[Rfam]
RNA sequence: GGCGAUAAACGGCCGAUGCAAUAAGCCAUUCGGACCCGGGGGCGGUACCCGGCGCCUCCACCACAAGCCGCCGCUGCUACGCUGGCGGUUUGUGAUGGGGGCGAAACAGGAUCGACGAGGGUGUAAAGAUCGGACUUUCGCUCGGCAUGGUACCACCGUUAUCGGGCUAAACCUUAUAGUUGCCAACGACAACUAUGCUGAGGCACGUCUCGCUGCUUAA
Numbered sequence: 001g002g003c004g005a006u007a008a009a010c011g012g013c014c015g016a017u018g019c020a021a022u023a024a025g026c027c028a029u030u031c032g033g034a035c036c037c038g039g040g041g042g043c044g045g046u047a048c049c050c051g052g053c054g055c056c057u058c059c060a061c062c063a064c065a066a067g068c069c070g071c072c073g074c075u076g077c078u079a080c081g082c083u084g085g086c087g088g089u090u091u092g093u094g095a096u097g098g099g100g101g102c103g104a105a106a107c108a109g110g111a112u113c114g115a116c117g118a119g120g121g122u123g124u125a126a127a128g129a130u131c132g133g134a135c136u137u138u139c140g141c142u143c144g145g146c147a148u149g150g151u152a153c154c155a156c157c158g159u160u161a162u163c164g165g166g167c168u169a170a171a172c173c174u175u176a177u178a179g180u181u182g183c184c185a186a187c188g189a190c191a192a193c194u195a196u197g198c199u200g201a202g203g204c205a206c207g208u209c210u211c212g213c214u215g216c217u218u219a220a
Base pairs, nucleotide, nucleotide: 001142002141003140004139005138014132015131016130017129026121027120030118031117032116036052037051038050039049040048053103054102055101056100057099058098059097143158144157145156

Shown here is a 220-nucleotide sequence from Mesorhizobium sp. J18, a member of the family "permuted transfer-messenger RNA". The match comes from Rfam's covariance-model search (148 bits). Bacterial tmRNA, also known as 10Sa RNA or SsrA, is named for its dual tRNA and mRNA-like properties. The literature on the family includes a 2002 paper in Nucleic Acids Res by Laslett et al., "BRUCE: a program for the detection of transfer-messenger RNA genes in nucleotide sequences". It is annotated as a non-coding RNA gene. The base pairs follow the family's consensus structure, which is taken from published work.